[Rfam]
RNA sequence: GGCGGAGGGCCCGCCGGAACCGCUAUACAGGUGGAGGUUCCAAACCACCCUAAGGUGCUGUAGUCAAAAGCUAUGGUAUUGAGCGUUAGGGAAAAGGCAGAUAUAACUGUCAGGUG
Numbered sequence: 001g002g003c004g005g006a007g008g009g010c011c012c013g014c015c016g017g018a019a020c021c022g023c024u025a026u027a028c029a030g031g032u033g034g035a036g037g038u039u040c041c042a043a044a045c046c047a048c049c050c051u052a053a054g055g056u057g058c059u060g061u062a063g064u065c066a067a068a069a070g071c072u073a074u075g076g077u078a079u080u081g082a083g084c085g086u087u088a089g090g091g092a093a094a095a096g097g098c099a100g101a102u103a104u105a106a107c108u109g110u111c112a113g114g115u116g
Stems, first nucleotide, its partner, number of pairs: 001015005016041006023034004045116001046114001048091006054080002057077003061073004096111005
RNA: Group II catalytic intron D1-D4-2